[Rfam]
RNA: U1 spliceosomal RNA
RNA sequence: AUACUUACCUGGCACUGGAGUUAUCCUUGAUCACGUAGGAGGAUCUCCCGAGCAGAGGCCUGCCAUUGCACUUGGGUAGGCUGACGUUCGCCACAUCCGCAAAAGUGGUUGCUUGGGGUGCACAAUUUUUGGUAGCGGGGCUGCGGGUUCGCAGCCCCGU
Dot-bracket structure: ...........((((.((((...(((((..........))))).)))).((((.(.(((.((((..........)))).)))..))))).(((....(.........).....))).))))..............(((((.((((....)))).))))).